[Rfam]
RNA sequence: GCAACCUGAUGCUGGCGCGCGAGAACAUCGUCGUGUUCCGCUCGCUGCUCGGGAUCUCGUGGAUGUGGUUCUUCGGCGCGGUGUUCCUGUCGCUGUUCCCGGCCUUCGCGAAGGACGUGCUG
Numbered sequence: 001g002c003a004a005c006c007u008g009a010u011g012c013u014g015g016c017g018c019g020c021g022a023g024a025a026c027a028u029c030g031u032c033g034u035g036u037u038c039c040g041c042u043c044g045c046u047g048c049u050c051g052g053g054a055u056c057u058c059g060u061g062g063a064u065g066u067g068g069u070u071c072u073u074c075g076g077c078g079c080g081g082u083g084u085u086c087c088u089g090u091c092g093c094u095g096u097u098c099c100c101g102g103c104c105u106u107c108g109c110g111a112a113g114g115a116c117g118u119g120c121u122g
Base pairs, nucleotide, nucleotide: 011048012047014045017042021038022037023036025034026033051121052120054118055117057115058114060112063105065103067099068098071095074092075091076090077089078088080087081086